Source information: The record is a 77-nucleotide RNA sequence, which matches "CyVA-1 RNA" in Rfam.
[Rfam]
RNA sequence: GUGAUGGAGCGGAUUUUUACCGUUUCUCCGCCGUGAGUUCGACUGAAGCGGAACGGUGUCAGGUCGAACUACAUCAC
Numbered sequence: 001g002u003g004a005u006g007g008a009g010c011g012g013a014u015u016u017u018u019a020c021c022g023u024u025u026c027u028c029c030g031c032c033g034u035g036a037g038u039u040c041g042a043c044u045g046a047a048g049c050g051g052a053a054c055g056g057u058g059u060c061a062g063g064u065c066g067a068a069c070u071a072c073a074u075c076a077c
Stems, first nucleotide, its partner, number of pairs: 001077006009031004037069008
Pairs were carried over by alignment from the consensus structure, which is taken from published work. Rfam classes the family as a small RNA. Cyanobacteria, Acidobacteria (1 example), Verrucomicrobia (1 example).